[Rfam]
RNA sequence: GAAAAUGCUUUCUAGGGUUCCGCUGCCGGCUUCGCUUUACCUGCCGGCAGGACAGGUCCGAGAGAAAGCGGGCACGGCCGGAUAACUAUGGCUGCUGUUUACACGGACGGACAAAAGCCUGGGAGAU
Numbered sequence: 001g002a003a004a005a006u007g008c009u010u011u012c013u014a015g016g017g018u019u020c021c022g023c024u025g026c027c028g029g030c031u032u033c034g035c036u037u038u039a040c041c042u043g044c045c046g047g048c049a050g051g052a053c054a055g056g057u058c059c060g061a062g063a064g065a066a067a068g069c070g071g072g073c074a075c076g077g078c079c080g081g082a083u084a085a086c087u088a089u090g091g092c093u094g095c096u097g098u099u100u101a102c103a104c105g106g107a108c109g110g111a112c113a114a115a116a117g118c119c120u121g122g123g124a125g126a127u
Stems, first nucleotide, its partner, number of pairs: 007069006015059002020056002022053001023050008070100005102122001104125001109119002
The record is a 127-nucleotide RNA sequence from Sinobaca qinghaiensis, which matches "Guanidine-I riboswitch aptamer" in Rfam.